[Rfam]
RNA sequence: AAUUUAGAUAGAGGUUGCAAAUAUUAAAGAGUAAUUAUAGGUUAGUCAUGACAAGCGUUGAUCCUAGAAUGAAAGGUAAAUUUGCCGAAAUGCGAAGAAAAGAGUCAAAAUUCUUUGUGUUGGGAUUAUGGAUAAGAUCCAUAAGACUGUCACCAUAUAAAAUUGGUGAUGUGCUAUUAAAUGA
Numbered sequence: 001a002a003u004u005u006a007g008a009u010a011g012a013g014g015u016u017g018c019a020a021a022u023a024u025u026a027a028a029g030a031g032u033a034a035u036u037a038u039a040g041g042u043u044a045g046u047c048a049u050g051a052c053a054a055g056c057g058u059u060g061a062u063c064c065u066a067g068a069a070u071g072a073a074a075g076g077u078a079a080a081u082u083u084g085c086c087g088a089a090a091u092g093c094g095a096a097g098a099a100a101a102g103a104g105u106c107a108a109a110a111u112u113c114u115u116u117g118u119g120u121u122g123g124g125a126u127u128a129u130g131g132a133u134a135a136g137a138u139c140c141a142u143a144a145g146a147c148u149g150u151c152a153c154c155a156u157a158u159a160a161a162a163u164u165g166g167u168g169a170u171g172u173g174c175u176a177u178u179a180a181a182u183g184a
Stems, first nucleotide, its partner, number of pairs: 007178005017085006024079003034070003038066004089121011122148002126144007150169006
A member of the RNA family "Lysine riboswitch aptamer" from Psychrilyobacter sp. S5, 184 nucleotides long. Riboswitches are metabolite binding domains within certain messenger RNAs that serve as precision sensors for their corresponding targets. Allosteric rearrangement of mRNA structure is mediated by ligand binding, and this results in modulation of gene expression. This family includes riboswitches that sense lysine in a number of genes involved in lysine metabolism, including lysC. For this family Rfam cites "Riboswitches Control Fundamental Biochemical Pathways in Bacillus subtilis and Other Bacteria" (Mandal et al., Cell, 2003). The base pairs follow the family's consensus structure, which is taken from published work.